RNA: mir-1199 microRNA precursor family
Organism: Hipposideros armiger
RNA sequence: UGCGUCGGAGCCGGGGCCUGAGCCCAGGCCGCGCGGGCCGCGAACUAGUCGAGCUACGCAUGCGGCCGGUGCUCGGCCUGCCCGGCCCCGGCCCCGCGCU
Numbered sequence: 001u002g003c004g005u006c007g008g009a010g011c012c013g014g015g016g017c018c019u020g021a022g023c024c025c026a027g028g029c030c031g032c033g034c035g036g037g038c039c040g041c042g043a044a045c046u047a048g049u050c051g052a053g054c055u056a057c058g059c060a061u062g063c064g065g066c067c068g069g070u071g072c073u074c075g076g077c078c079u080g081c082c083c084g085g086c087c088c089c090g091g092c093c094c095c096g097c098g099c100u
Stems, first nucleotide, its partner, number of pairs: 002099004007095002010092009019075005024069002027067007037057001040054001045053002